[Rfam]
RNA sequence: UUGGUGAGUACUUCUACUAAAAACGCCCACAUCUUGUGGGCAACGUAGAAGCCACCGCCUCCUGCGGA
Numbered sequence: 001u002u003g004g005u006g007a008g009u010a011c012u013u014c015u016a017c018u019a020a021a022a023a024c025g026c027c028c029a030c031a032u033c034u035u036g037u038g039g040g041c042a043a044c045g046u047a048g049a050a051g052c053c054a055c056c057g058c059c060u061c062c063u064g065c066g067g068a
Stems, first nucleotide, its partner, number of pairs: 011051007026040005055067004
Dot-bracket structure: ..........(((((((........(((((.....)))))....)))))))...((((.....)))).
The record is a 68-nucleotide RNA sequence from Alteribacillus iranensis, which matches "Bacillaceae-1 RNA" in Rfam. It scores 49 bits against the family's covariance model. It is annotated as a small RNA.